[Rfam]
RNA sequence: AGUCAUAAUUACUAUUCCUUCUAAAUAGUGAUUGUGAUGAGCGAUACGGGCAUGUUGGCGCAUGCCCGUAUUGCGUU
Numbered sequence: 001a002g003u004c005a006u007a008a009u010u011a012c013u014a015u016u017c018c019u020u021c022u023a024a025a026u027a028g029u030g031a032u033u034g035u036g037a038u039g040a041g042c043g044a045u046a047c048g049g050g051c052a053u054g055u056u057g058g059c060g061c062a063u064g065c066c067c068g069u070a071u072u073g074c075g076u077u
Base pairs, nucleotide, nucleotide: 002038003037004036005035006034007033008032011029012028013027014026015025016024041074042073043072045070046069047068048067049066050065051064052063053062054061055060
RNA: SymR antitoxin